[Rfam]
Shown here is a 48-nucleotide RNA sequence, a member of the family "uup RNA". It is one of the family's seed sequences. Rfam classes the family as a cis-regulatory element. Pairs were carried over by alignment from the consensus structure, which is taken from published work.
RNA sequence: GGCGAGUUUGCUCUGUACAACUCAUACCGGCGAAACAUUGUGCAGAGC
Numbered sequence: 001g002g003c004g005a006g007u008u009u010g011c012u013c014u015g016u017a018c019a020a021c022u023c024a025u026a027c028c029g030g031c032g033a034a035a036c037a038u039u040g041u042g043c044a045g046a047g048c
Stems, first nucleotide, its partner, number of pairs: 011047005017041003